mir-219 microRNA precursor family: an 81-nucleotide sequence from Cinara cedri. On this family, see Lim et al., Science 2003: "Vertebrate microRNA genes". The base pairs follow the family's consensus structure, which was predicted with RNAalifold.

RNA sequence: UCAGGCUAUGAUUGUCCAAACGCAAUUCUUGUUAAAUUAAAAAUAUAUAAUCAAGGAUUGAGUAGGGACAUCAACGCUUGA
Number, nucleotide and partner (000 for none) at each position: 001u000002c080003a079004g078005g077006c076007u000008a000009u073010g072011a071012u070013u000014g069015u068016c067017c066018a000019a000020a000021c062022g000023c060024a059025a058026u057027u056028c055029u054030u053031g052032u000033u000034a000035a000036a000037u000038u000039a000040a000041a000042a000043a000044u000045a000046u000047a000048u000049a000050a000051u000052c031053a030054a029055g028056g027057a026058u025059u024060g023061a000062g021063u000064a000065g000066g017067g016068a015069c014070a012071u011072c010073a009074a000075c000076g006077c005078u004079u003080g002081a000